Glycine riboswitch aptamer: a 97-nucleotide RNA from Actinomadura viridilutea. This family represents the bacterial glycine riboswitch. A search with the family's covariance model found it, with a score of 50 bits. Lineage of the source: Bacteria > Bacillati > Actinomycetes > Streptosporangiales > Actinomadura.

RNA sequence: CGCCCUCUGGAAAGAGGGGACGCUCCCAGGUCCCCCGCCGAAGGUGAAAACCCCGCGAGGGGUGAAGCUCUCAGGCGCCGAUGACAGAGGGGGAGGC
Numbered sequence: 001c002g003c004c005c006u007c008u009g010g011a012a013a014g015a016g017g018g019g020a021c022g023c024u025c026c027c028a029g030g031u032c033c034c035c036c037g038c039c040g041a042a043g044g045u046g047a048a049a050a051c052c053c054c055g056c057g058a059g060g061g062g063u064g065a066a067g068c069u070c071u072c073a074g075g076c077g078c079c080g081a082u083g084a085c086a087g088a089g090g091g092g093g094a095g096g097c
Stems, first nucleotide, its partner, number of pairs: 003091007016035006037076003040072002044070001046068001050063002